[Rfam]
RNA sequence: GGGUGAAAUGAGGAUUAAAUAAUUUUAUUGAUGGACGGUAUGAUGUCCAUUGAAUCAUGUAUUAGCUCUAUCUGAUCAUUC
Numbered sequence: 001g002g003g004u005g006a007a008a009u010g011a012g013g014a015u016u017a018a019a020u021a022a023u024u025u026u027a028u029u030g031a032u033g034g035a036c037g038g039u040a041u042g043a044u045g046u047c048c049a050u051u052g053a054a055u056c057a058u059g060u061a062u063u064a065g066c067u068c069u070a071u072c073u074g075a076u077c078a079u080u081c
Stems, first nucleotide, its partner, number of pairs: 002080004030050001033048004
RNA: Small nucleolar RNA Z102/R77